Overview: A member of the RNA family "pan motif" from Desulfosporosinus sp. I2, 124 nucleotides long. NCBI's taxonomy places the organism under Bacteria, Bacillati, Bacillota, Desulfitobacteriaceae, Desulfosporosinus. It scores 45 bits against the family's covariance model.
[Rfam]
Nucleotides: 124
Base pairs, nucleotide, nucleotide: 001027002026003025004023005022006021007020008019010018011017094120095119096118097116098115099114100113101112103111104110105109
Number, partner (000 for none) and nucleotide at each position: 001027c002026a003025g004023a005022c006021g007020a008019u009000a010018u011017c012000g013000a014000u015000a016000a017011g018010a019008g020007u021006u022005g023004u024000a025003c026002u027001g028000u029000c030000a031000g032000g033000g034000g035000u036000a037000a038000g039000g040000a041000u042000u043000a044000g045000a046000a047000a048000a049000c050000u051000c052000a053000u054000a055000g056000a057000a058000u059000c060000a061000a062000g063000c064000u065000u066000a067000a068000a069000g070000u071000u072000u073000g074000a075000a076000a077000a078000g079000a080000a081000a082000a083000u084000a085000g086000c087000u088000u089000u090000u091000u092000a093000a094120c095119c096118g097116c098115u099114u100113g101112g102000a103111u104110c105109a106000a107000u108000u109105u110104g111103a112101c113100c114099g115098a116097g117000a118096c119095g120094g121000a122000g123000g124000g